[Rfam]
RNA sequence: GCGACCGACACGGGGUGCCCCGGGACACCGGGGCUGAGAUCACACCCGUCGAACCUGCUCUGGCUCGUACCAGCGAAGGGAUGUCCGCCGAUGACGCU
Numbered sequence: 001g002c003g004a005c006c007g008a009c010a011c012g013g014g015g016u017g018c019c020c021c022g023g024g025a026c027a028c029c030g031g032g033g034c035u036g037a038g039a040u041c042a043c044a045c046c047c048g049u050c051g052a053a054c055c056u057g058c059u060c061u062g063g064c065u066c067g068u069a070c071c072a073g074c075g076a077a078g079g080g081a082u083g084u085c086c087g088c089c090g091a092u093g094a095c096g097c098u
Stems, first nucleotide, its partner, number of pairs: 007085004011048004016042001017034005054079003060073004